[Rfam]
RNA sequence: AGCCUCAUUCUAGAUGGAAAUGGCCACUGUCAUUCAUGGUGUCCAGGAAUUGUUAAUGUGGCUACACUGAGAUAUGGGUCAUUUUUCCAUCACAGCAAGUUUAUUGCAGUGGUGACAAUGAGACCUGUAACAUUU
Numbered sequence: 001a002g003c004c005u006c007a008u009u010c011u012a013g014a015u016g017g018a019a020a021u022g023g024c025c026a027c028u029g030u031c032a033u034u035c036a037u038g039g040u041g042u043c044c045a046g047g048a049a050u051u052g053u054u055a056a057u058g059u060g061g062c063u064a065c066a067c068u069g070a071g072a073u074a075u076g077g078g079u080c081a082u083u084u085u086u087c088c089a090u091c092a093c094a095g096c097a098a099g100u101u102u103a104u105u106g107c108a109g110u111g112g113u114g115a116c117a118a119u120g121a122g123a124c125c126u127g128u129a130a131c132a133u134u135u
Stems, first nucleotide, its partner, number of pairs: 002062003006058003021045003025041003074128005088114006
Description:
This 135-nucleotide sequence from Leptonychotes weddellii belongs to the Rfam family "Small nucleolar RNA SNORA1". Gene Ontology terms of the family: nucleolus and RNA processing. The base pairs follow the family's consensus structure, which was predicted with PFOLD. NCBI's taxonomy places the organism under Eukaryota, Eumetazoa, Teleostomi, Euteleostomi, Leptonychotes. Rfam describes the family as follows. ACA1 is a member of the H/ACA class of snoRNA that guide the sites of modification of uridines to pseudouridines.